Rfam assigns this 169-nucleotide part of an RNA from Sarcoptes scabiei to the family "Eukaryotic small subunit ribosomal RNA". NCBI's taxonomy places the organism under Eukaryota, Bilateria, Ecdysozoa, Panarthropoda, Sarcoptes. The match comes from Rfam's covariance-model search (1776 bits). The family is grouped with related families in Rfam's "SSU clan".
[Rfam]
RNA sequence: CCGCCCGUCGCUACUACCGAUUGGAUGUUUUAGUGAGGUCUUCGGACUGGCCAACGUAGCCAUCCUCGUGGUGGCCAUGUUGUGCGGGAAAGAUGACCAAACUUGAACAUCUAGAGGAAGUAAAAGUCGUAACAAGGUUUCCGUAGGUGAACCUGCGGAAGGAUCAUUA
Numbered sequence: 001c002c003g004c005c006c007g008u009c010g011c012u013a014c015u016a017c018c019g020a021u022u023g024g025a026u027g028u029u030u031u032a033g034u035g036a037g038g039u040c041u042u043c044g045g046a047c048u049g050g051c052c053a054a055c056g057u058a059g060c061c062a063u064c065c066u067c068g069u070g071g072u073g074g075c076c077a078u079g080u081u082g083u084g085c086g087g088g089a090a091a092g093a094u095g096a097c098c099a100a101a102c103u104u105g106a107a108c109a110u111c112u113a114g115a116g117g118a119a120g121u122a123a124a125a126g127u128c129g130u131a132a133c134a135a136g137g138u139u140u141c142c143g144u145a146g147g148u149g150a151a152c153c154u155g156c157g158g159a160a161g162g163a164u165c166a167u168u169a
Base pairs, nucleotide, nucleotide: 001136003133006129007128009126012122013121014120015119017117018116021113023112024111025110026109027108028107029106030105032103033102034101037098038097039096040095042093043092047088048087050085051084052082053081054080055079056078057077059075060074061073062072063071064070138161139160140159141158142157143156144155145154146153147152